[Rfam]
RNA sequence: CGGGAGCGGGGGGUCCCACCAGCGCGGUGUCCAGUCACGGUCGCCACCACGUCGCGCUUGAGCCAAUGGCGAGACCGACCUCGGCCGGA
Dot-bracket structure: ...(..(((((.(.(......((((((((.........[[[[[[[....))))))))....).)...]]]]]..]]..)))))..)...
Numbered sequence: 001c002g003g004g005a006g007c008g009g010g011g012g013g014u015c016c017c018a019c020c021a022g023c024g025c026g027g028u029g030u031c032c033a034g035u036c037a038c039g040g041u042c043g044c045c046a047c048c049a050c051g052u053c054g055c056g057c058u059u060g061a062g063c064c065a066a067u068g069g070c071g072a073g074a075c076c077g078a079c080c081u082c083g084g085c086c087g088g089a
Stems, first nucleotide, its partner, number of pairs: 004086001007083005013064001015062001022057008039076002041072005